[Rfam]
RNA sequence: UACUACCAAAUCUUAUCUCCAUCUCCAUGUGGUGAUGGCUGGGAGUUUUUUCUUAAUAAAAAACUGCAGACGGAGAAAG
Numbered sequence: 001u002a003c004u005a006c007c008a009a010a011u012c013u014u015a016u017c018u019c020c021a022u023c024u025c026c027a028u029g030u031g032g033u034g035a036u037g038g039c040u041g042g043g044a045g046u047u048u049u050u051u052c053u054u055a056a057u058a059a060a061a062a063a064c065u066g067c068a069g070a071c072g073g074a075g076a077a078a079g
Base pairs, nucleotide, nucleotide: 012079013078014077016075018073019072021033022032023031044065045064046063047062048061049060050059
Rfam assigns this 79-nucleotide RNA sequence from Hermetia illucens to the family "drz-agam-1 ribozyme".
A reference for the family is Webb et al. (2009), "Widespread occurrence of self-cleaving ribozymes", Science.
The match comes from Rfam's covariance-model search (37 bits).
Pairs were carried over by alignment from the consensus structure, which is taken from published work.